Shown here is a 188-nucleotide RNA from Actinacidiphila oryziradicis, a member of the family "Streptomyces RNA 1601". Identified by deep sequencing of transcriptome at the end of exponential growth phase. Appears longer on northern blot than sequencing transcript. Streptomyces specific. Rfam classes the family as a small RNA.

RNA sequence: AUCGACCGGCCGGACACACAUGUGACCGGCCCACAAGUGGAGGCUCCGAUCUCCCACCUGGCCGACCGAAAGGUCUGCAGGUUCCGGUCAGGUAGCGCUGCGGCGUUGCCCGAUGCGCCCCGCGGAAUAACGCGGCGGUGCUCCCGGUUGUGAGGAGCCCCGCCUGUGACCCGUACGGGGCGUUUUUU
Numbered sequence: 001a002u003c004g005a006c007c008g009g010c011c012g013g014a015c016a017c018a019c020a021u022g023u024g025a026c027c028g029g030c031c032c033a034c035a036a037g038u039g040g041a042g043g044c045u046c047c048g049a050u051c052u053c054c055c056a057c058c059u060g061g062c063c064g065a066c067c068g069a070a071a072g073g074u075c076u077g078c079a080g081g082u083u084c085c086g087g088u089c090a091g092g093u094a095g096c097g098c099u100g101c102g103g104c105g106u107u108g109c110c111c112g113a114u115g116c117g118c119c120c121c122g123c124g125g126a127a128u129a130a131c132g133c134g135g136c137g138g139u140g141c142u143c144c145c146g147g148u149u150g151u152g153a154g155g156a157g158c159c160c161c162g163c164c165u166g167u168g169a170c171c172c173g174u175a176c177g178g179g180g181c182g183u184u185u186u187u188u
Stems, first nucleotide, its partner, number of pairs: 004089006012027002028083004034060002037057004041052002061078002064075004091110008117181006123173003131168003134164005140158005